Shown here is a 65-nucleotide sequence from Truepera sp., a member of the family "L2-Alphaproteobacteria ribosomal protein leader". It is annotated as a cis-regulatory leader. Pairs were carried over by alignment from the consensus structure, which is taken from published work. A search with the family's covariance model found it, with a score of 49 bits.
RNA sequence: GGGGAUCUUCGGAGCCCUUCACCGCCGGGUCUAAACCGCCCGUGCAAGCAAACGGAAGACAGAGA
Numbered sequence: 001g002g003g004g005a006u007c008u009u010c011g012g013a014g015c016c017c018u019u020c021a022c023c024g025c026c027g028g029g030u031c032u033a034a035a036c037c038g039c040c041c042g043u044g045c046a047a048g049c050a051a052a053c054g055g056a057a058g059a060c061a062g063a064g065a
Stems, first nucleotide, its partner, number of pairs: 001018004006014001008012001026042005